This 173-nucleotide sequence from Carboxydocella thermautotrophica belongs to the Rfam family "Group II catalytic intron D1-D4-3". Rfam links the family to the GO term Group II intron splicing. About the family: Group II introns are found in rRNA, tRNA and mRNA of organelles in fungi, plants and protists, and also in mRNA in bacteria. Taxonomically the source falls in Carboxydocella thermautotrophica (Bacteria, Bacillati, Bacillota, Eubacteriales).
[Rfam]
RNA sequence: UCCACCGUGAGGUGGAAUCUGAAGGAAGUCGGCGGCAAACCUCCGGCCCGACGAACAGAAACCACAUAAGAGGCUAGCGGCAGUUGGAUGAGCUUGCGAAACAAAGCGAAGUCCUUGCUACCGAAGGCUGCCGAGAGUGAAUAUGGCGGGUAGAUGGAGGGAAAGACAGCGCU
Numbered sequence: 001u002c003c004a005c006c007g008u009g010a011g012g013u014g015g016a017a018u019c020u021g022a023a024g025g026a027a028g029u030c031g032g033c034g035g036c037a038a039a040c041c042u043c044c045g046g047c048c049c050g051a052c053g054a055a056c057a058g059a060a061a062c063c064a065c066a067u068a069a070g071a072g073g074c075u076a077g078c079g080g081c082a083g084u085u086g087g088a089u090g091a092g093c094u095u096g097c098g099a100a101a102c103a104a105a106g107c108g109a110a111g112u113c114c115u116u117g118c119u120a121c122c123g124a125a126g127g128c129u130g131c132c133g134a135g136a137g138u139g140a141a142u143a144u145g146g147c148g149g150g151u152a153g154a155u156g157g158a159g160g161g162a163a164a165g166a167c168a169g170c171g172c173u
Stems, first nucleotide, its partner, number of pairs: 001016006028173001030171002036165001040160006046151005062146003066142002073138003078133006086114004092107004